[Rfam]
Nucleotides: 509
Stems, first nucleotide, its partner, number of pairs: 006390002009387003016380001018328001021325002025322002031316002035312001037310003041306002045304002048301001050299002054233002059228005065111004075101001077100001080099001082097005116222004122217001127212001130209001132206003136202002140198002143196002148192002153189007160178002165174003235295002240290003244286002250282001253279002256277002262269001329342001331340001354376004361371002391431002394428002397425001399423003403418003407415001437476002440473001442471002445468002447465003451461002477508002480504003484500003487496002
Number, partner (000 for none) and nucleotide at each position: 001000c002000g003000g004000g005000c006390g007389g008000a009387c010386c011385a012000c013000u014000c015000c016380c017000a018328g019000g020000u021325g022324g023000c024000g025322u026321c027000c028000g029000g030000g031316u032315c033000g034000a035312c036000g037310a038309g039308g040000g041306c042305g043000a044000c045304g046303u047000c048301g049000c050299c051298g052000a053000a054233g055232u056000a057000g058000g059228c060227g061226c062225c063224g064000u065111c066110g067109g068108c069000g070000a071000g072000g073000a074000c075101u076000c077100c078000g079000a080099g081000g082097a083096c084095g085094g086093c087000c088000u089000c090000g091000u092000c093086g094085c095084c096083g097082u098000a099080c100077g101075g102000c103000c104000c105000c106000u107000c108068g109067c110066c111065g112000a113000u114000c115000u116222g117221c118220u119219c120000g121000a122217u123000c124000c125000u126000g127212c128000c129000g130209u131000g132206c133205g134204c135000g136202a137201g138000g139000a140198g141197g142000u143196g144195g145000a146000c147000c148192c149191g150000g151000u152000c153189g154188g155187u156186g157185g158184g159183c160178u161177c162000g163000c164000c165174c166173g167172c168000g169000a170000c171000g172167g173166c174165g175000a176000u177161g178160a179000c180000c181000u182000c183159g184158c185157c186156c187155g188154c189153c190000g191149c192148g193000u194000a195144c196143u197141c198140c199000c200000g201137c202136u203000g204134g205133c206132g207000g208000c209130a210000g211000c212127g213000g214000g215000c216000c217122g218000c219119g220118a221117g222116c223000u224063c225062g226061g227060u228059g229000a230000g231000g232055g233054c234000c235295u236294c237000c238000u239000c240290g241289u242288c243000c244286u245285c246000g247000u248000a249000g250282c251000c252000g253279c254278g255000c256277a257276g258000g259000a260000c261000g262269g263000g264000g265000a266000g267000c268000u269262c270000g271000c272000c273000g274000a275000g276257u277256u278254c279253g280000g281000c282250g283000g284000g285245g286244a287000u288242g289241a290240c291000c292000g293000c294236g295235a296000c297000c298051c299050g300000c301048u302000c303046a304045c305042c306041g307000g308039u309038c310037u311000g312035g313000a314000c315032g316031a317000a318000g319000g320000u321026g322025a323000c324022c325021c326000u327000g328018c329342c330000g331340u332000c333000c334000c335000c336000g337000a338000c339000c340331g341000a342329g343000u344000a345000g346000c347000u348000g349000a350000g351000c352000c353000u354376g355375c356374g357373g358000u359000u360000c361371a362370c363000c364000c365000g366000g367000u368000a369000c370362g371361u372000a373357c374356c375355g376354c377000c378000c379000u380016g381000c382000a383000c384000c385011u386010g387009g388000a389007c390006c391431c392430a393000c394428g395427g396000c397425a398000g399423c400422g401421c402000c403418c404417g405416c406000a407415g408000c409000a410000g411000c412000c413000a414000c415407c416405g417404u418403g419000a420000g421401g422400u423399g424000a425397u426000c427395u428394c429000c430392u431391g432000c433000a434000u435000c436000u437476g438475c439000g440473g441000c442471g443470c444000c445468g446467a447465c448464u449463u450000g451461g452460u453000g454000g455000u456000c457000g458000u459000g460452g461451c462000g463449a464448g465447g466000u467446u468445c469000c470443g471442c472000g473440c474000g475438g476437c477508g478507g479000c480504g481503g482502u483000g484500c485499c486498g487496a488495g489000a490000c491000u492000c493000u494000g495488c496487u497000g498486c499485g500484g501000g502482g503481c504480c505000u506000g507478c508477u509000g